Notes: Rfam assigns this 125-nucleotide sequence from Neorhizobium lilium to the family "Alphaproteobacterial ar14". Rfam links the family to the GO term biological process involved in symbiotic interaction. Pairs were carried over by alignment from the consensus structure. For this family Rfam cites "A survey of sRNA families in alpha-proteobacteria" (del Val et al., RNA Biol, 2012). Rfam describes the family as follows. Smr14C2 was renamed NfeR1 (Nodule Formation Efficiency RNA) highly expressed in salt stress and during the symbiotic interaction on legume roots. Lineage of the source: Bacteria > Pseudomonadati > Alphaproteobacteria > Hyphomicrobiales > Neorhizobium. By type it is a small RNA.
[Rfam]
RNA sequence: GAUUUUGCAAAGAUCCUUAUCCUCCUCCCAAGGAUCUUUGCCGGAGCAGCGGCAUUCCUCCUCCCAGCUGUUGCUCUACUGUUUCAAGAAGCCUGCCGCACCUCCUCCCGCGGCAGGCUUUUUGU
Numbered sequence: 001g002a003u004u005u006u007g008c009a010a011a012g013a014u015c016c017u018u019a020u021c022c023u024c025c026u027c028c029c030a031a032g033g034a035u036c037u038u039u040g041c042c043g044g045a046g047c048a049g050c051g052g053c054a055u056u057c058c059u060c061c062u063c064c065c066a067g068c069u070g071u072u073g074c075u076c077u078a079c080u081g082u083u084u085c086a087a088g089a090a091g092c093c094u095g096c097c098g099c100a101c102c103u104c105c106u107c108c109c110g111c112g113g114c115a116g117g118c119u120u121u122u123u124g125u
Stems, first nucleotide, its partner, number of pairs: 007041003011037007044076010089120011